[Rfam]
RNA: MIR6288 microRNA precursor family
Organism: Prunus armeniaca
RNA sequence: CUAAAAUUAGCCACUUGUUAUUUUUUAAUGGGUUCUUAUAAAAUUUUAACAUACUAAGAACCAAUUAAAAAAUAACAAGUGGCAAGUUUUGG
Numbered sequence: 001c002u003a004a005a006a007u008u009a010g011c012c013a014c015u016u017g018u019u020a021u022u023u024u025u026u027a028a029u030g031g032g033u034u035c036u037u038a039u040a041a042a043a044u045u046u047u048a049a050c051a052u053a054c055u056a057a058g059a060a061c062c063a064a065u066u067a068a069a070a071a072a073u074a075a076c077a078a079g080u081g082g083c084a085a086g087u088u089u090u091g092g
Stems, first nucleotide, its partner, number of pairs: 002091007010083020031062008